[Rfam]
RNA sequence: GGAGCAGGGCAGAUGGUCGCCGGCCCCGGCUGGUCCGGGGCGGGAGGAAAGUCCGGGCUCCAUAGGGCAGGGUGCUGGGUAACGCCCAGUCUCGGCGACGAGCAGGAAAGUGCCACAGAAAGCAAACCGCCGAGCGCUAAACCGGGCUCUGGAUGCCGCCCGCAUCGGACAGGGUUCGGGAAAGGACUCGGUAAGGGUGAAACGGUGAGGUAAGAGCUCACCAGUCCCGAUGGCGACAUCGGGAGCUAGGCAAACCCCACCCGGAGCAAGGCCAAGUAGGAGAGCGUUUGAGAGUGGCCCGCUCGAAGCUCUCGGGUCGGCCGCUUGAGCCCGCCGGAAACGGCGGGCCUAGAGGAAUGACCAUCGCCUCCGCCACAGGCGGAGGAACAGAACCCGGCUUACAACUGCUCCAGAU
Numbered sequence: 001g002g003a004g005c006a007g008g009g010c011a012g013a014u015g016g017u018c019g020c021c022g023g024c025c026c027c028g029g030c031u032g033g034u035c036c037g038g039g040g041c042g043g044g045a046g047g048a049a050a051g052u053c054c055g056g057g058c059u060c061c062a063u064a065g066g067g068c069a070g071g072g073u074g075c076u077g078g079g080u081a082a083c084g085c086c087c088a089g090u091c092u093c094g095g096c097g098a099c100g101a102g103c104a105g106g107a108a109a110g111u112g113c114c115a116c117a118g119a120a121a122g123c124a125a126a127c128c129g130c131c132g133a134g135c136g137c138u139a140a141a142c143c144g145g146g147c148u149c150u151g152g153a154u155g156c157c158g159c160c161c162g163c164a165u166c167g168g169a170c171a172g173g174g175u176u177c178g179g180g181a182a183a184g185g186a187c188u189c190g191g192u193a194a195g196g197g198u199g200a201a202a203c204g205g206u207g208a209g210g211u212a213a214g215a216g217c218u219c220a221c222c223a224g225u226c227c228c229g230a231u232g233g234c235g236a237c238a239u240c241g242g243g244a245g246c247u248a249g250g251c252a253a254a255c256c257c258c259a260c261c262c263g264g265a266g267c268a269a270g271g272c273c274a275a276g277u278a279g280g281a282g283a284g285c286g287u288u289u290g291a292g293a294g295u296g297g298c299c300c301g302c303u304c305g306a307a308g309c310u311c312u313c314g315g316g317u318c319g320g321c322c323g324c325u326u327g328a329g330c331c332c333g334c335c336g337g338a339a340a341c342g343g344c345g346g347g348c349c350u351a352g353a354g355g356a357a358u359g360a361c362c363a364u365c366g367c368c369u370c371c372g373c374c375a376c377a378g379g380c381g382g383a384g385g386a387a388c389a390g391a392a393c394c395c396g397g398c399u400u401a402c403a404a405c406u407g408c409u410c411c412a413g414a415u
Stems, first nucleotide, its partner, number of pairs: 001411007012365007020044002023041006049400003053397005058266004065300004070262005075089005090104001091102004105257002110255002112251003127196002129192006137184001204222006224246001225244008270322004280313006292304004329348008

Rfam assigns this 415-nucleotide sequence from Desulfoglaeba alkanexedens to the family "Bacterial RNase P class A". The source organism's lineage runs through Bacteria, Pseudomonadati, Thermodesulfobacteriota, Syntrophobacteria and Desulfoglaeba alkanexedens. It scores 304 bits against the family's covariance model. Gene Ontology terms of the family: dimeric ribonuclease P complex, ribonuclease P activity and tRNA processing.